[Rfam]
RNA sequence: GCGCGACAAGACCAAACCACCCGCGAGGGUGGGGCGGAAAGCCCAAGGGUCUCACGCAGACAGCCGGGUUGCCGAA
Numbered sequence: 001g002c003g004c005g006a007c008a009a010g011a012c013c014a015a016a017c018c019a020c021c022c023g024c025g026a027g028g029g030u031g032g033g034g035c036g037g038a039a040a041g042c043c044c045a046a047g048g049g050u051c052u053c054a055c056g057c058a059g060a061c062a063g064c065c066g067g068g069u070u071g072c073c074g075a076a
Base pairs, nucleotide, nucleotide: 012037013036017032018031019030020029021028022027040070041069042068043067047065048064049061050060051059
RNA: c-di-GMP-I riboswitch aptamer
Organism: Geobacter argillaceus